[Rfam]
RNA sequence: UUAACUGCACAUACGGCUCUCCAUAUUUUAGCCGUAUGAAGCUUUAAGAAGGAGGAAAAGCAGCCCCAGGCUCGGGGUGCGGCAGUGUGGAGACCUGUCGUAAUGCGUGAUAAUGUCACGCGAGUGCAAGCAGGCGGAGGCGGCUUGCAUGGAGCUAAGAAUAUGGCA
Numbered sequence: 001u002u003a004a005c006u007g008c009a010c011a012u013a014c015g016g017c018u019c020u021c022c023a024u025a026u027u028u029u030a031g032c033c034g035u036a037u038g039a040a041g042c043u044u045u046a047a048g049a050a051g052g053a054g055g056a057a058a059a060g061c062a063g064c065c066c067c068a069g070g071c072u073c074g075g076g077g078u079g080c081g082g083c084a085g086u087g088u089g090g091a092g093a094c095c096u097g098u099c100g101u102a103a104u105g106c107g108u109g110a111u112a113a114u115g116u117c118a119c120g121c122g123a124g125u126g127c128a129a130g131c132a133g134g135c136g137g138a139g140g141c142g143g144c145u146u147g148c149a150u151g152g153a154g155c156u157a158a159g160a161a162u163a164u165g166g167c168a
Base pairs, nucleotide, nucleotide: 010038011037012036013035014034015033016032017031018030064077065076066075067074069156070155071154072153073152078102079101080100081099082098083097084096085095087094088093105121106120107119108118109117124150125149126148127147128146129145130144131143134141135140
malK-I RNA: a 168-nucleotide RNA. It is one of the family's seed sequences. The family's consensus secondary structure is taken from published work. It is annotated as a cis-regulatory element.